ASpks TB sRNA: a 69-nucleotide sequence from Nocardia arthritidis.
The source organism's lineage runs through Bacteria, Bacillati, Actinomycetes, Nocardiaceae and Nocardia.
The match comes from Rfam's covariance-model search (74 bits).
By type it is an antisense RNA.
For this family Rfam cites "Identification of small RNAs in Mycobacterium tuberculosis" (Arnvig and Young, Mol Microbiol, 2009).
RNA sequence: CUUGAUCGACCCCAGCCACAGCGGCUGUCCGCGGUCCUUGCCGUAGGCGGCGAGCAGUGCCUGGGCCUC
Numbered sequence: 001c002u003u004g005a006u007c008g009a010c011c012c013c014a015g016c017c018a019c020a021g022c023g024g025c026u027g028u029c030c031g032c033g034g035u036c037c038u039u040g041c042c043g044u045a046g047g048c049g050g051c052g053a054g055c056a057g058u059g060c061c062u063g064g065g066c067c068u069c
Stems, first nucleotide, its partner, number of pairs: 014026004028065003032059002037054003041050003